Notes
The family of this 157-nucleotide RNA sequence from Feifania hominis is "glmS glucosamine-6-phosphate activated ribozyme aptamer". Rfam's curators write: This entry contains a glucosamine-6-phosphate activated ribozyme that is found in the mRNA for GlmS. GlmS is an enzyme that uses fructose-6-phosphate and glutamine to generate glucosamine-6-phosphate. The ribozyme catalyses self cleavage of the glmS mRNA that is thought to regulate GlmS activity. Rfam classes the family as a riboswitch.
RNA sequence: AAUAGCUCGAAAGCGCCAGGACCGGCAUGGCCGGUUGACGAGGAGAGGGACAUUCGAAAGAUUCGGCGGGUACCCUCCGGCUGUUAGCGUGACGGCCGUCAGAUUUCUCCCAAAACCCACGGGCAACCGUGAAACAAAGGAGCAAUCAUGCAGCGCU
Numbered sequence: 001a002a003u004a005g006c007u008c009g010a011a012a013g014c015g016c017c018a019g020g021a022c023c024g025g026c027a028u029g030g031c032c033g034g035u036u037g038a039c040g041a042g043g044a045g046a047g048g049g050a051c052a053u054u055c056g057a058a059a060g061a062u063u064c065g066g067c068g069g070g071u072a073c074c075c076u077c078c079g080g081c082u083g084u085u086a087g088c089g090u091g092a093c094g095g096c097c098g099u100c101a102g103a104u105u106u107c108u109c110c111c112a113a114a115a116c117c118c119a120c121g122g123g124c125a126a127c128c129g130u131g132a133a134a135c136a137a138a139g140g141a142g143c144a145a146u147c148a149u150g151c152a153g154c155g156c157u
Stems, first nucleotide, its partner, number of pairs: 020036007045077005054066004078098006102147004107142002118131005